[Rfam]
Nucleotides: 147
Base pairs, nucleotide, nucleotide: 001143002142003141004140008134009133010132011131016129017128018127023122024121025120026119027118028117029116030115031060032059033058034057035056037052038051039050040049041048068086069085070084071083072082087114088113089112090111094107095106096105097104098103
Number, partner (000 for none) and nucleotide at each position: 001143g002142c003141c004140c005000a006000a007000a008134g009133u010132c011131g012000c013000a014000c015000g016129u017128g018127c019000c020000u021000g022000u023122g024121g025120g026119u027118g028117u029116c030115c031060g032059c033058c034057g035056a036000c037052c038051c039050u040049c041048g042000a043000a044000u045000u046000g047000g048041u049040g050039a051038g052037g053000a054000a055000a056035u057034c058033g059032g060031u061000a062000a063000g064000g065000u066000a067000c068086c069085u070084g071083g072082a073000a074000u075000u076000a077000a078000c079000c080000c081000c082072u083071c084070c085069a086068g087114u088113c089112g090111u091000u092000u093000c094107u095106c096105c097104g098103g099000c100000c101000a102000a103098c104097c105096g106095g107094a108000a109000g110000a111090g112089c113088g114087a115030g116029g117028a118027c119026a120025u121024c122023u123000u124000g125000a126000a127018g128017c129016a130000a131011c132010g133009a134008c135000g136000g137000u138000g139000c140004g141003g142002g143001c144000c145000u146000u147000u